Background:
A member of the RNA family "6S / SsrS RNA" from Xylophilus sp. Leaf220, 181 nucleotides long. The match comes from Rfam's covariance-model search (50 bits). It is annotated as a non-coding RNA gene.
[Rfam]
RNA sequence: CAGCGUCUGCGGUGCACGCCGGGCUUUAUAUUUCCUUGAACCAAUGCUCAUUGAGCCCGGGCUUGGUACAUCGCCGGGCAAGCGUGAUCAUCUCGCGUCAGAUGAACCCAAUGCCUGGCUGCCCUCGCCCACCUGAACCCCCGGUUCAGGAUGAGAGCUCGGUGGCAUUCGCAGACACCUU
Numbered sequence: 001c002a003g004c005g006u007c008u009g010c011g012g013u014g015c016a017c018g019c020c021g022g023g024c025u026u027u028a029u030a031u032u033u034c035c036u037u038g039a040a041c042c043a044a045u046g047c048u049c050a051u052u053g054a055g056c057c058c059g060g061g062c063u064u065g066g067u068a069c070a071u072c073g074c075c076g077g078g079c080a081a082g083c084g085u086g087a088u089c090a091u092c093u094c095g096c097g098u099c100a101g102a103u104g105a106a107c108c109c110a111a112u113g114c115c116u117g118g119c120u121g122c123c124c125u126c127g128c129c130c131a132c133c134u135g136a137a138c139c140c141c142c143g144g145u146u147c148a149g150g151a152u153g154a155g156a157g158c159u160c161g162g163u164g165g166c167a168u169u170c171g172c173a174g175a176c177a178c179c180u181u
Stems, first nucleotide, its partner, number of pairs: 003178001005176007012168004017164003033151003037148006059130003065124002070120001073119007084107002089104005